[Rfam]
RNA: DUF3800-XI RNA
RNA sequence: CGGGCUGGUCGAAAGCCCCUGGUCCACCGAACAGUGGGGAAUUUCCCC
Numbered sequence: 001c002g003g004g005c006u007g008g009u010c011g012a013a014a015g016c017c018c019c020u021g022g023u024c025c026a027c028c029g030a031a032c033a034g035u036g037g038g039g040a041a042u043u044u045c046c047c048c
Base pairs, nucleotide, nucleotide: 002025003024004023005022006021007018008017010015